[Rfam]
RNA sequence: GGAGUCGGCCGGGCGGUCGCUGUCGCGCAAGCGGCAGAGGAAAGUCCGGGCUCCGCAGGGCAGGGUGCCAGGUAACGCCUGGGCGGCGCGAGCCGACGGAAAGUGCAACAGAGAGCAGACCGCCGAACGGUUCCUCCGGGAAUGCGUGGCAAGGGUGAAACGGUGCGGUAAGAGCGCACCGCGAGUCUGGCAACAGACCGGCACGGCAAACCCCACCUGGAGCAAGGCCGAAUAGGGAUCCCAUGACGUGGCCCGCGUCGGAUCCGGGUUGGCCGCACGAGGCGCGUGGUGACACGCGUCCCAGAGGAAUGACCGUCCUCGACAGAACCCGGCUUACAGGCCGGCUCCAAUC
Numbered sequence: 001g002g003a004g005u006c007g008g009c010c011g012g013g014c015g016g017u018c019g020c021u022g023u024c025g026c027g028c029a030a031g032c033g034g035c036a037g038a039g040g041a042a043a044g045u046c047c048g049g050g051c052u053c054c055g056c057a058g059g060g061c062a063g064g065g066u067g068c069c070a071g072g073u074a075a076c077g078c079c080u081g082g083g084c085g086g087c088g089c090g091a092g093c094c095g096a097c098g099g100a101a102a103g104u105g106c107a108a109c110a111g112a113g114a115g116c117a118g119a120c121c122g123c124c125g126a127a128c129g130g131u132u133c134c135u136c137c138g139g140g141a142a143u144g145c146g147u148g149g150c151a152a153g154g155g156u157g158a159a160a161c162g163g164u165g166c167g168g169u170a171a172g173a174g175c176g177c178a179c180c181g182c183g184a185g186u187c188u189g190g191c192a193a194c195a196g197a198c199c200g201g202c203a204c205g206g207c208a209a210a211c212c213c214c215a216c217c218u219g220g221a222g223c224a225a226g227g228c229c230g231a232a233u234a235g236g237g238a239u240c241c242c243a244u245g246a247c248g249u250g251g252c253c254c255g256c257g258u259c260g261g262a263u264c265c266g267g268g269u270u271g272g273c274c275g276c277a278c279g280a281g282g283c284g285c286g287u288g289g290u291g292a293c294a295c296g297c298g299u300c301c302c303a304g305a306g307g308a309a310u311g312a313c314c315g316u317c318c319u320c321g322a323c324a325g326a327a328c329c330c331g332g333c334u335u336a337c338a339g340g341c342c343g344g345c346u347c348c349a350a351u352c
Stems, first nucleotide, its partner, number of pairs: 001348010011337001012317007020037007042335003046332005051222004058254004063218005068082005083097001084095004098213002103211002105207002120154002122150003128144002162180006181202001182200002185198005226274004236265006245259005281300008